A member of the RNA family "mir-252 microRNA precursor family" from Rhipicephalus microplus, 74 nucleotides long. Lineage of the source: Eukaryota > Opisthokonta > Metazoa > Acari > Boophilus. A search with the family's covariance model found it, with a score of 53 bits. Rfam links the family to the GO terms miRNA-mediated post-transcriptional gene silencing and RISC complex. The base pairs follow the family's consensus structure, which was predicted with RNAalifold.

RNA sequence: UUUGUCCUUUAAGUAGUAGUGCCGCAGGUAAGGGAUUUACACUGUUACCUGCACACGACUGCUUGACUGAUUAA
Numbered sequence: 001u002u003u004g005u006c007c008u009u010u011a012a013g014u015a016g017u018a019g020u021g022c023c024g025c026a027g028g029u030a031a032g033g034g035a036u037u038u039a040c041a042c043u044g045u046u047a048c049c050u051g052c053a054c055a056c057g058a059c060u061g062c063u064u065g066a067c068u069g070a071u072u073a074a
Base pairs, nucleotide, nucleotide: 001074002073004071005070006069010065011064012063013062014061015060016059017058019056024052025051026050027049028048029047030046